[Rfam]
RNA: DUF805 RNA
RNA sequence: UUUAAGUGGAGUCCAGCAACCACACAAAAAACGGGGCGUAACCCAAAAGCCAAACGAGUAGGAACUAA
Number, nucleotide and partner (000 for none) at each position: 001u000002u000003u000004a000005a000006g023007u022008g021009g020010a000011g000012u000013c000014c000015a000016g000017c000018a000019a000020c009021c008022a007023c006024a000025c000026a000027a000028a000029a000030a000031a000032c000033g000034g000035g051036g050037c049038g000039u000040a000041a000042c062043c061044c000045a000046a000047a000048a000049g037050c036051c035052a000053a000054a000055c000056g000057a000058g000059u000060a000061g043062g042063a000064a000065c000066u000067a000068a000